Rfam assigns this 52-nucleotide RNA sequence from Stappia taiwanensis to the family "serC leader". Taxonomically the source falls in Stappia (Bacteria, Pseudomonadati, Pseudomonadota, Alphaproteobacteria). A reference for the family is Corbino et al. (2005), "Evidence for a second class of S-adenosylmethionine riboswitches and other regulatory RNA motifs in alpha-proteobacteria", Genome Biol. A search with the family's covariance model found it, with a score of 70 bits. Its family is annotated with regulation of gene expression in the Gene Ontology. By type it is a cis-regulatory leader. From the family's description: This family is a putative regulatory RNA structure that is found upstream of the serC-serA operon in some alpha-proteobacteria. The final stem of the structure overlaps the ribosome binding site of the serC reading frame.

[Rfam]
RNA sequence: AGGUGGGCCACCCCUCCCCACCGAGGGGCACCUAUCUGGAAGGAUAGCCAAU
Numbered sequence: 001a002g003g004u005g006g007g008c009c010a011c012c013c014c015u016c017c018c019c020a021c022c023g024a025g026g027g028g029c030a031c032c033u034a035u036c037u038g039g040a041a042g043g044a045u046a047g048c049c050a051a052u
Base pairs, nucleotide, nucleotide: 011028012027013026014025015024016023032047033046034045035044036043037042